[Rfam]
RNA sequence: CCGGUGAGCCGCGACUGGCGCGACAGAGAUGGAAUCAACCAUCGGGAAGCGGCUCCGUGUCUCACGUUGUCGCCGUGCGCCUGGGCCGUCCGA
Numbered sequence: 001c002c003g004g005u006g007a008g009c010c011g012c013g014a015c016u017g018g019c020g021c022g023a024c025a026g027a028g029a030u031g032g033a034a035u036c037a038a039c040c041a042u043c044g045g046g047a048a049g050c051g052g053c054u055c056c057g058u059g060u061c062u063c064a065c066g067u068u069g070u071c072g073c074c075g076u077g078c079g080c081c082u083g084g085g086c087c088g089u090c091c092g093a
Base pairs, nucleotide, nucleotide: 003058006055007054008053009052010051011050012049015046016045017081018080019079020078021077029042030041031040032039070088072086073085074084

The family of this 93-nucleotide RNA sequence from Kitasatospora indigofera is "ZMP/ZTP riboswitch aptamer (pfl RNA motif)".
The family's consensus secondary structure is taken from published work.
A search with the family's covariance model found it, with a score of 53 bits.